Source information
Shown here is a 114-nucleotide RNA from Urocitellus parryii, a member of the family "Small nucleolar RNA SNORA26". The match comes from Rfam's covariance-model search (71 bits). The snoRNA HBI-6 belong to the H/ACA family of snoRNAs, guiding the pseudouridylation of position U4522 if the 28S rRNA. HBI-6 is the human orthologue of mouse MBI-6 snoRNA. The organism belongs to Urocitellus, within Eukaryota. Rfam links the family to the GO terms nucleolus and RNA processing. The family's RNA type in Rfam is H/ACA-box small nucleolar RNA.
[Rfam]
RNA sequence: GUGUGCUUUUAAAGUUGAUGCAGUGCUUUAAGAGGCUAACACUGAAGGUUAAAGGUAACUUCCAUAAAAUUUAGAGAACAGGUUGCAAAACUCCUCUUUGAAUCAGUUACAAUU
Numbered sequence: 001g002u003g004u005g006c007u008u009u010u011a012a013a014g015u016u017g018a019u020g021c022a023g024u025g026c027u028u029u030a031a032g033a034g035g036c037u038a039a040c041a042c043u044g045a046a047g048g049u050u051a052a053a054g055g056u057a058a059c060u061u062c063c064a065u066a067a068a069a070u071u072u073a074g075a076g077a078a079c080a081g082g083u084u085g086c087a088a089a090a091c092u093c094c095u096c097u098u099u100g101a102a103u104c105a106g107u108u109a110c111a112a113u114u
Base pairs, nucleotide, nucleotide: 002051003050006047007046008045009044014040015039016038017037019035021032058114060112061111064108071101072100073099074098075097076096077095080092081091083090084089